[Rfam]
RNA sequence: CCCUUCUUUUAAAGCACCCUGCUAAAAUUGUGGGGGUGAAGCCUCUGGGCUUGACCCUUGCGGGCAUGUGAGCGUGGGUACACCAAGGAAGAAAAGUGAAGGCAAUGUCGUAAAUGAGACUCGGGUGGACAGCUUACUGUCCGGUGUCUUAUGUCUCAAGAUUCUGUGCUACAAUC
Numbered sequence: 001c002c003c004u005u006c007u008u009u010u011a012a013a014g015c016a017c018c019c020u021g022c023u024a025a026a027a028u029u030g031u032g033g034g035g036g037u038g039a040a041g042c043c044u045c046u047g048g049g050c051u052u053g054a055c056c057c058u059u060g061c062g063g064g065c066a067u068g069u070g071a072g073c074g075u076g077g078g079u080a081c082a083c084c085a086a087g088g089a090a091g092a093a094a095a096g097u098g099a100a101g102g103c104a105a106u107g108u109c110g111u112a113a114a115u116g117a118g119a120c121u122c123g124g125g126u127g128g129a130c131a132g133c134u135u136a137c138u139g140u141c142c143g144g145u146g147u148c149u150u151a152u153g154u155c156u157c158a159a160g161a162u163u164c165u166g167u168g169c170u171a172c173a174a175u176c
Stems, first nucleotide, its partner, number of pairs: 017078002020074004027067002033058002036055002039052005101170004107164001124145001126143004
The family of this 176-nucleotide sequence from Salvelinus namaycush is "Small nucleolar RNA SNORA81". The family's RNA type in Rfam is H/ACA-box small nucleolar RNA. The base pairs follow the family's consensus structure, which was predicted with WAR. Taxonomically the source falls in Salvelinus (Eukaryota, Chordata, Actinopteri, Salmoniformes).